[Rfam]
RNA sequence: AUUCUCCUUGCUCUGCCCAGCUUCGCCUUUGCUAUGGCGAAUCUGUCUUAAAUCGGAGAGAGAGUAACGGGCAUAAUAAGUGCACGGCAGAAGGGCCUCUCGGUGGUCUCUUCUGAUCCCCUGUUGUGUGCUCAAC
Numbered sequence: 001a002u003u004c005u006c007c008u009u010g011c012u013c014u015g016c017c018c019a020g021c022u023u024c025g026c027c028u029u030u031g032c033u034a035u036g037g038c039g040a041a042u043c044u045g046u047c048u049u050a051a052a053u054c055g056g057a058g059a060g061a062g063a064g065u066a067a068c069g070g071g072c073a074u075a076a077u078a079a080g081u082g083c084a085c086g087g088c089a090g091a092a093g094g095g096c097c098u099c100u101c102g103g104u105g106g107u108c109u110c111u112u113c114u115g116a117u118c119c120c121c122u123g124u125u126g127u128g129u130g131c132u133c134a135a136c
Base pairs, nucleotide, nucleotide: 002066004064005063006062008060011058012057013056014055015054019044020043022041023040024039025038026037074126075125076124077123078122080120082118089114090113091112093109094108095107096106097105
Annotation:
The record is a 136-nucleotide RNA from Merluccius polli, which matches "Small nucleolar RNA SNORA64/SNORA10 family" in Rfam. This family belongs to the H/ACA class of small nucleolar RNAs (snoRNAs) which act as guides in the the modification of uridines to pseudouridines. This family includes the human snoRNAs U64 and ACA10 and mouse MBI-29. By type it is an H/ACA-box small nucleolar RNA.